A member of the RNA family "Small nucleolar RNA SNORA64/SNORA10 family" from Nannospalax galili, 132 nucleotides long. It scores 82 bits against the family's covariance model. NCBI's taxonomy places the organism under Eukaryota, Deuterostomia, Chordata, Spalacinae, Nannospalax. Rfam's curators write: This family belongs to the H/ACA class of small nucleolar RNAs (snoRNAs) which act as guides in the the modification of uridines to pseudouridines. This family includes the human snoRNAs U64 and ACA10 and mouse MBI-29. The family's consensus secondary structure is taken from published work.
[Rfam]
RNA sequence: CCUCUCUCACUCUGCAUAGUUACACUUGGUUUCACCUGUGUAACUUUCGUACCGGGAGAGAGAGGAAAGAGCUCUUCAGGACCUUGGAUUGGCCUCAUAGUGGCCUCUCUUGCCUAGAAGAACUCCACAGUU
Numbered sequence: 001c002c003u004c005u006c007u008c009a010c011u012c013u014g015c016a017u018a019g020u021u022a023c024a025c026u027u028g029g030u031u032u033c034a035c036c037u038g039u040g041u042a043a044c045u046u047u048c049g050u051a052c053c054g055g056g057a058g059a060g061a062g063a064g065g066a067a068a069g070a071g072c073u074c075u076u077c078a079g080g081a082c083c084u085u086g087g088a089u090u091g092g093c094c095u096c097a098u099a100g101u102g103g104c105c106u107c108u109c110u111u112g113c114c115u116a117g118a119a120g121a122a123c124u125c126c127a128c129a130g131u132u
Base pairs, nucleotide, nucleotide: 002064003063004062005061006060007059008058010056011055012054014052018045019044020043021042022041023040024039025038073121074120075119076118079115080114086110087109088108091105092104093103094102